c-di-GMP-I riboswitch aptamer: an 88-nucleotide RNA sequence from Salipaludibacillus keqinensis. GEMM was predicted in a large-scale screen for bacterial structured RNA regulatory elements.

[Rfam]
RNA sequence: UGUCGACAAUGGCAAAUCUAUUGAAAAAUAGAGAUGCAAAGCUACGGGUCUAAGGGAGAACGGCUUCUAUGAUCGCCGGGUUACCGAA
Numbered sequence: 001u002g003u004c005g006a007c008a009a010u011g012g013c014a015a016a017u018c019u020a021u022u023g024a025a026a027a028a029u030a031g032a033g034a035u036g037c038a039a040a041g042c043u044a045c046g047g048g049u050c051u052a053a054g055g056g057a058g059a060a061c062g063g064c065u066u067c068u069a070u071g072a073u074c075g076c077c078g079g080g081u082u083a084c085c086g087a088a
Base pairs, nucleotide, nucleotide: 012037013036017032018031019030020029021028022027040082041081042080043079045078046077047076048073049072050071055067056066057065058064